This 73-nucleotide RNA sequence from Saccharomyces cerevisiae belongs to the Rfam family "tRNA". Its family is annotated with triplet codon-amino acid adaptor activity in the Gene Ontology. Its Rfam clan is "tRNA clan". NCBI's taxonomy places the organism under Eukaryota, Opisthokonta, saccharomyceta, Saccharomycetes, Saccharomyces. It is one of the family's seed sequences.
[Rfam]
RNA sequence: GCUCGUGUAGCUCAGUGGUUAGAGCUUCGUGCUUAUAACGCGACCGUCGUGGGUUCAAUCCCCACCUCGAGCA
Numbered sequence: 001g002c003u004c005g006u007g008u009a010g011c012u013c014a015g016u017g018g019u020u021a022g023a024g025c026u027u028c029g030u031g032c033u034u035a036u037a038a039c040g041c042g043a044c045c046g047u048c049g050u051g052g053g054u055u056c057a058a059u060c061c062c063c064a065c066c067u068c069g070a071g072c073a
Base pairs, nucleotide, nucleotide: 001072002071003070004069005068007066010025011024012023013022027043028042029041030040031039049065050064051063052062053061